[Rfam]
Nucleotides: 086
Stems, first nucleotide, its partner, number of pairs: 001078009013044003017039001026035003046062005
Number, partner (000 for none) and nucleotide at each position: 001078g002077g003076u004075c005074g006073g007072g008071a009070g010000g011000g012000c013044g014043a015042c016000g017039a018000a019000u020000a021000a022000a023000a024000u025000a026035c027034c028033c029000g030000c031000a032000a033028g034027g035026g036000g037000a038000a039017u040000a041000a042015g043014u044013c045000c046062g047061c048060g049059g050058u051000c052000g053000u054000u055000a056000c057000a058050g059049c060048c061047g062046u063000u064000c065000u066000c067000a068000a069000c070009c071008u072007c073006c074005u075004g076003a077002c078001c079000a080000c081000c082000c083000a084000c085000g086000u

The family of this 86-nucleotide sequence from Oceanospirillum linum is "sRNA-Xcc1". By type it is a small RNA. The literature on the family includes a 1996 paper in Mol Plant Microbe Interact by Wengelnik et al., "HrpG, a key hrp regulatory protein of Xanthomonas campestris pv. vesicatoria is homologous to two-component response regulators".